[Rfam]
RNA sequence: GAGAUAUGAUGAGUGGUCUAGUCUCGCAUUAAAUAUGUAAGUUCGGUGUCUUCCCCAAGCCUGGUUAGAACAAUAGGGCACUCUCCUUUGACCAAUUUGAUCUC
Numbered sequence: 001g002a003g004a005u006a007u008g009a010u011g012a013g014u015g016g017u018c019u020a021g022u023c024u025c026g027c028a029u030u031a032a033a034u035a036u037g038u039a040a041g042u043u044c045g046g047u048g049u050c051u052u053c054c055c056c057a058a059g060c061c062u063g064g065u066u067a068g069a070a071c072a073a074u075a076g077g078g079c080a081c082u083c084u085c086c087u088u089u090g091a092c093c094a095a096u097u098u099g100a101u102c103u104c
Stems, first nucleotide, its partner, number of pairs: 001104004014094005023041002026038002045082006062076001064074002